SAM riboswitch aptamer (S box leader): a 117-nucleotide RNA from Melioribacter roseus. Pairs were carried over by alignment from the consensus structure, which is taken from published work. Lineage of the source: Bacteria > Ignavibacteriota > Ignavibacteriales > Melioribacter > Melioribacter roseus. Clan: SAM clan. It scores 81 bits against the family's covariance model. Rfam's curators write: The SAM riboswitch is found upstream of a number of genes which code for proteins involved in methionine or cysteine biosynthesis in Gram-positive bacteria. The SAM riboswitch acts at the level of transcription termination control. The predicted structure consists of a complex stem-loop region followed by a single stem loop terminator region. An alternative and mutually exclusive form involves bases in the 3' segment of helix 1 with those in the 5' region of helix 5 to form a structure termed the anti-terminator form.

RNA sequence: GUCUUAUCAAGAAAGGUCGAGGGAACAGGCCCGAUGACGCCUUGGCAACCAUCCCGUCUUUAAGAGGGAAAGGUGCUAAUUCCUGCCCCAACUUUAAUGUUGCGGGGAAGAUAAGAA
Numbered sequence: 001g002u003c004u005u006a007u008c009a010a011g012a013a014a015g016g017u018c019g020a021g022g023g024a025a026c027a028g029g030c031c032c033g034a035u036g037a038c039g040c041c042u043u044g045g046c047a048a049c050c051a052u053c054c055c056g057u058c059u060u061u062a063a064g065a066g067g068g069a070a071a072g073g074u075g076c077u078a079a080u081u082c083c084u085g086c087c088c089c090a091a092c093u094u095u096a097a098u099g100u101u102g103c104g105g106g107g108a109a110g111a112u113a114a115g116a117a
Base pairs, nucleotide, nucleotide: 002116003115004114005113006112007111008110013043014042015041016040017039021032022031023030026085027084028083029082044077045076046075047074049073050072052069053068054067055066081109086106087105088104091101